[Rfam]
RNA: Small nucleolar RNA snoR99
RNA sequence: GUGCUUUAGGGAUGAACGGGUCCCUCACAUUCGUCUUUAUCCGUCCUGUUUGCUUUGUCAGCUGUCUUUCUAGUGUCUUGCUGAUCAGUUUUUGAUGGAAAAUUC
Numbered sequence: 001g002u003g004c005u006u007u008a009g010g011g012a013u014g015a016a017c018g019g020g021u022c023c024c025u026c027a028c029a030u031u032c033g034u035c036u037u038u039a040u041c042c043g044u045c046c047u048g049u050u051u052g053c054u055u056u057g058u059c060a061g062c063u064g065u066c067u068u069u070c071u072a073g074u075g076u077c078u079u080g081c082u083g084a085u086c087a088g089u090u091u092u093u094g095a096u097g098g099a100a101a102a103u104u105c
Stems, first nucleotide, its partner, number of pairs: 040099006057085006064078001